The family of this 101-nucleotide RNA sequence from Billgrantia gudaonensis is "t44 RNA". NCBI's taxonomy places the organism under Bacteria, Pseudomonadota, Gammaproteobacteria, Oceanospirillales, Billgrantia. A search with the family's covariance model found it, with a score of 73 bits.

RNA sequence: AACCUCAAGCCUUGAAAACACACAUGCACCGGCACAUGGUCCCGGGUGCUGCCGCGGUUUCCCCCCGGCAGUCGGAUCCAUGGGGUGCAUGGAGGCCUAAC
Numbered sequence: 001a002a003c004c005u006c007a008a009g010c011c012u013u014g015a016a017a018a019c020a021c022a023c024a025u026g027c028a029c030c031g032g033c034a035c036a037u038g039g040u041c042c043c044g045g046g047u048g049c050u051g052c053c054g055c056g057g058u059u060u061c062c063c064c065c066c067g068g069c070a071g072u073c074g075g076a077u078c079c080a081u082g083g084g085g086u087g088c089a090u091g092g093a094g095g096c097c098u099a100a101c
Stems, first nucleotide, its partner, number of pairs: 023091008035082005040076003048072007